[Rfam]
Nucleotides: 076
Base pairs, nucleotide, nucleotide: 003074004073005072006071007070008069009068010067011066012065013064014063016061017060018059022055023054024053025052026051028049029048030047031046
Number, partner (000 for none) and nucleotide at each position: 001000a002000a003074a004073a005072g006071a007070a008069u009068a010067u011066u012065g013064c014063g015000u016061a017060g018059g019000c020000c021000u022055u023054u024053g025052u026051u027000u028049c029048g030047a031046a032000a033000g034000a035000c036000c037000c038000a039000a040000a041000a042000a043000u044000u045000g046031u047030u048029c049028g050000c051026a052025g053024c054023a055022a056000u057000c058000u059018c060017c061016u062000u063014c064013g065012c066011a067010a068009u069008a070007u071006u072005u073004u074003u075000u076000g